[Rfam]
RNA sequence: GGCAGAGGGAGCCCGAUCCCCGUGGCCGGUGACGCCGGCCAUGAGGAAAGUCCCCCCACCGGCCGGACGGGCGACCGGGCGCAAGCCCGGAGUCGGAGACGGCUGGCUCUGGAACAGAAACGGGACCCCCCGAUCCGACCGAUGAGGUGCGUCGGCCGCAUUCGCGGUCGGCGGCGUCUGCGGUUUCCCGCGGACGCGCGAACUGACCCGCAAGGGAAGGGAGUUGACCCACCGAGGGCCGAGGGGCGGUACGCCGCCCCGCUGUACGCGGAAUCUCCCGCGUGCCGACGAUCGGGAACGGAUGGAACGGCGAAUCCUCGCCGGUGCAAGCCCGCGCCACCCGGCGGCAUCGCCGCCGGACAGGUAGUCCGGCCACGGCGCGGGCGCUCAGCCGAAUGUCGGGACGAACAGAAGGGGGCUUACUCCCCUCAGCC
Numbered sequence: 001g002g003c004a005g006a007g008g009g010a011g012c013c014c015g016a017u018c019c020c021c022g023u024g025g026c027c028g029g030u031g032a033c034g035c036c037g038g039c040c041a042u043g044a045g046g047a048a049a050g051u052c053c054c055c056c057c058a059c060c061g062g063c064c065g066g067a068c069g070g071g072c073g074a075c076c077g078g079g080c081g082c083a084a085g086c087c088c089g090g091a092g093u094c095g096g097a098g099a100c101g102g103c104u105g106g107c108u109c110u111g112g113a114a115c116a117g118a119a120a121c122g123g124g125a126c127c128c129c130c131c132g133a134u135c136c137g138a139c140c141g142a143u144g145a146g147g148u149g150c151g152u153c154g155g156c157c158g159c160a161u162u163c164g165c166g167g168u169c170g171g172c173g174g175c176g177u178c179u180g181c182g183g184u185u186u187c188c189c190g191c192g193g194a195c196g197c198g199c200g201a202a203c204u205g206a207c208c209c210g211c212a213a214g215g216g217a218a219g220g221g222a223g224u225u226g227a228c229c230c231a232c233c234g235a236g237g238g239c240c241g242a243g244g245g246g247c248g249g250u251a252c253g254c255c256g257c258c259c260c261g262c263u264g265u266a267c268g269c270g271g272a273a274u275c276u277c278c279c280g281c282g283u284g285c286c287g288a289c290g291a292u293c294g295g296g297a298a299c300g301g302a303u304g305g306a307a308c309g310g311c312g313a314a315u316c317c318u319c320g321c322c323g324g325u326g327c328a329a330g331c332c333c334g335c336g337c338c339a340c341c342c343g344g345c346g347g348c349a350u351c352g353c354c355g356c357c358g359g360a361c362a363g364g365u366a367g368u369c370c371g372g373c374c375a376c377g378g379c380g381c382g383g384g385c386g387c388u389c390a391g392c393c394g395a396a397u398g399u400c401g402g403g404a405c406g407a408a409c410a411g412a413a414g415g416g417g418g419c420u421u422a423c424u425c426c427c428c429u430c431a432g433c434c
Base pairs, nucleotide, nucleotide: 001434002433003432005430006429007428008427009426010424011423012403013402014401015400016399017398021043022042023041024040025039026038027037028036029035048421049420050419052418053417054416055415056414057326058325059324060323070322071321072320073319074318075090076089077088078087079086091104092103093102094101095100105317106316110313112311126301127300129296130295131294132293133292134291135290330385331384332383333382334381335380336379337378338377